[Rfam]
Rfam assigns this 118-nucleotide RNA from Otolemur garnettii to the family "U5 spliceosomal RNA". The family's RNA type in Rfam is spliceosomal small nuclear RNA. It scores 65 bits against the family's covariance model. Gene Ontology terms of the family: spliceosomal tri-snRNP complex assembly and U5 snRNP.

RNA sequence: AUACUCUGGUUUCUCUUUAGAUCGUAUAAAAAUCUUUUUCCUUAUGCUAAAGAUUUCUUUGGCAAGGAACAACUCUGAGUCUUAAGCCAAUUUUUUUAGGCCUUGUUUCUGUAAGGCU
Numbered sequence: 001a002u003a004c005u006c007u008g009g010u011u012u013c014u015c016u017u018u019a020g021a022u023c024g025u026a027u028a029a030a031a032a033u034c035u036u037u038u039u040c041c042u043u044a045u046g047c048u049a050a051a052g053a054u055u056u057c058u059u060u061g062g063c064a065a066g067g068a069a070c071a072a073c074u075c076u077g078a079g080u081c082u083u084a085a086g087c088c089a090a091u092u093u094u095u096u097u098a099g100g101c102c103u104u105g106u107u108u109c110u111g112u113a114a115g116g117c118u
Base pairs, nucleotide, nucleotide: 003080004079005078006077009070010069011068012067013066014065017062018061019060030056031055032054033053034052035051036050037049098118100117101116102115103114104113105112